About this RNA: Shown here is a 170-nucleotide RNA sequence from Clostridium sp. CAG:265, a member of the family "Lysine riboswitch aptamer". Rfam links the family to the GO term lysine biosynthetic process. It scores 114 bits against the family's covariance model. The family's consensus secondary structure is taken from published work.
RNA sequence: UUGCAAGAUAGAGGCGCGAUACUUAUCAGUACUAUUAAAGAGCUAAGCACAAUGAUUUAAUGGGAAAGGAUUUAUCGCCGAAGUAAAUAGCCUAUGCUUUACAGCUAUUUACUGGGGGUUCAUAUAAUAUAUGUAUUCCUGUCACAUUUUUGUGGAGAGCUAUCAUUUAA
Numbered sequence: 001u002u003g004c005a006a007g008a009u010a011g012a013g014g015c016g017c018g019a020u021a022c023u024u025a026u027c028a029g030u031a032c033u034a035u036u037a038a039a040g041a042g043c044u045a046a047g048c049a050c051a052a053u054g055a056u057u058u059a060a061u062g063g064g065a066a067a068g069g070a071u072u073u074a075u076c077g078c079c080g081a082a083g084u085a086a087a088u089a090g091c092c093u094a095u096g097c098u099u100u101a102c103a104g105c106u107a108u109u110u111a112c113u114g115g116g117g118g119u120u121c122a123u124a125u126a127a128u129a130u131a132u133g134u135a136u137u138c139c140u141g142u143c144a145c146a147u148u149u150u151u152g153u154g155g156a157g158a159g160c161u162a163u164c165a166u167u168u169a170a
Base pairs, nucleotide, nucleotide: 007164008163009162010161011160016078017077018076019075020074021073024070032063033062034061035060036059037058038057039056082113083112084111085110086109087108088107089106090105091104114140115139116138117137118136119135121133122132123131124130142155143154144153145152146151